[Rfam]
RNA sequence: GGUUUCCAUUGGUGUAAAUCCAAUUACCUCAAUUUAAUUUGCAAUGAAAAAAAAAAAAGGCCCCAUUGGUAUUAAAUGGUUAUCCAUUAAGCGGGGACAA
Numbered sequence: 001g002g003u004u005u006c007c008a009u010u011g012g013u014g015u016a017a018a019u020c021c022a023a024u025u026a027c028c029u030c031a032a033u034u035u036a037a038u039u040u041g042c043a044a045u046g047a048a049a050a051a052a053a054a055a056a057a058a059g060g061c062c063c064c065a066u067u068g069g070u071a072u073u074a075a076a077u078g079g080u081u082a083u084c085c086a087u088u089a090a091g092c093g094g095g096g097a098c099a100a
Stems, first nucleotide, its partner, number of pairs: 009023004061096004065087002068084004073079001
RNA: Plastid-rps12 3UTR RNA